[Rfam]
The record is a 75-nucleotide RNA sequence from Bursaphelenchus xylophilus, which matches "mir-252 microRNA precursor family" in Rfam. Clan: mir-252 microRNA precursor family. The organism belongs to Bursaphelenchus, within Eukaryota.
RNA sequence: CUGGAUGGCUAAGUAGUAGUGCCGCAGGUAACUGGCAAAAGGAGAUUACCUGUGCACCGCUCCUUAACCUUUUGU
Numbered sequence: 001c002u003g004g005a006u007g008g009c010u011a012a013g014u015a016g017u018a019g020u021g022c023c024g025c026a027g028g029u030a031a032c033u034g035g036c037a038a039a040a041g042g043a044g045a046u047u048a049c050c051u052g053u054g055c056a057c058c059g060c061u062c063c064u065u066a067a068c069c070u071u072u073u074g075u
Stems, first nucleotide, its partner, number of pairs: 002074004007069001010066004015061003019057001024053007
Pairs were carried over by alignment from the consensus structure, which was predicted with RNAalifold.